[Rfam]
Rfam assigns this 147-nucleotide RNA sequence from Thioalkalivibrio sulfidiphilus to the family "radC RNA". Rfam classes the family as a cis-regulatory element.
RNA sequence: ACCUACACCCCAUGCGCGCUGACCUCCGUCAGCACCAUGCCCAGGCAGCUUCGGUCUUCAAAGCUGCGGCGCGGUUCUUCCGCGUUGACCGAUCCAGUCCGCUUCGCAUCGCUCCUGCGGACGAUCGCCAUGUCCUGGCGACGAUGC
Numbered sequence: 001a002c003c004u005a006c007a008c009c010c011c012a013u014g015c016g017c018g019c020u021g022a023c024c025u026c027c028g029u030c031a032g033c034a035c036c037a038u039g040c041c042c043a044g045g046c047a048g049c050u051u052c053g054g055u056c057u058u059c060a061a062a063g064c065u066g067c068g069g070c071g072c073g074g075u076u077c078u079u080c081c082g083c084g085u086u087g088a089c090c091g092a093u094c095c096a097g098u099c100c101g102c103u104u105c106g107c108a109u110c111g112c113u114c115c116u117g118c119g120g121a122c123g124a125u126c127g128c129c130a131u132g133u134c135c136u137g138g139c140g141a142c143g144a145u146g147c
Stems, first nucleotide, its partner, number of pairs: 011039004018033006045067006053090004068086007117147003125141006